[Rfam]
RNA sequence: UAUUUUAGUAGAGGUUGCGUAUCAUAUCAGUAAUGUGGCAGAUGUGUCAGGCACAUAAGAAGUCAUGUGAAAGGGUGUUACGCCGAAAGAAUAUUCUUCCUGAGAGAAUAUAUCUUGGGCAUAUGGUUAAAAGCUAUAUGACUGUCAUCUUAUAGAGAUGGUGAGCUACAGACGUG
Numbered sequence: 001u002a003u004u005u006u007a008g009u010a011g012a013g014g015u016u017g018c019g020u021a022u023c024a025u026a027u028c029a030g031u032a033a034u035g036u037g038g039c040a041g042a043u044g045u046g047u048c049a050g051g052c053a054c055a056u057a058a059g060a061a062g063u064c065a066u067g068u069g070a071a072a073g074g075g076u077g078u079u080a081c082g083c084c085g086a087a088a089g090a091a092u093a094u095u096c097u098u099c100c101u102g103a104g105a106g107a108a109u110a111u112a113u114c115u116u117g118g119g120c121a122u123a124u125g126g127u128u129a130a131a132a133g134c135u136a137u138a139u140g141a142c143u144g145u146c147a148u149c150u151u152a153u154a155g156a157g158a159u160g161g162u163g164a165g166c167u168a169c170a171g172a173c174g175u176g
Stems, first nucleotide, its partner, number of pairs: 006171001008169004017083005023077003033068007087116004091111007117143002120140008145161007
The family of this 176-nucleotide RNA from Eubacterium sp. CAG:603 is "Lysine riboswitch aptamer". A search with the family's covariance model found it, with a score of 110 bits. Gene Ontology term of the family: lysine biosynthetic process.